[Rfam]
RNA sequence: CUGUGUGAGGCCACGCGUCCCUGGGUCCGGGUGAGGCCAUGUGUCCCUGGAUCCGGGUGAGGCCUUGCACACCU
Numbered sequence: 001c002u003g004u005g006u007g008a009g010g011c012c013a014c015g016c017g018u019c020c021c022u023g024g025g026u027c028c029g030g031g032u033g034a035g036g037c038c039a040u041g042u043g044u045c046c047c048u049g050g051a052u053c054c055g056g057g058u059g060a061g062g063c064c065u066u067g068c069a070c071a072c073c074u
Base pairs, nucleotide, nucleotide: 003072004071005070006069007068008065009064010063011062012061016059017058018057019056020055023054024053025052026051027050028049029048030047031046033045034044036042037041